[Rfam]
RNA: Glycine riboswitch aptamer
RNA sequence: CUCUGGAGAGUGUUUCUUUGUGAAACCACCAAAGAGGAAAGCCAUCAGGUAAACUUUCAGGUGAAAAGGACAGGG
Dot-bracket structure: (((((......((((.......)))).(((.(..(((....(.....).....))))..)))........)))))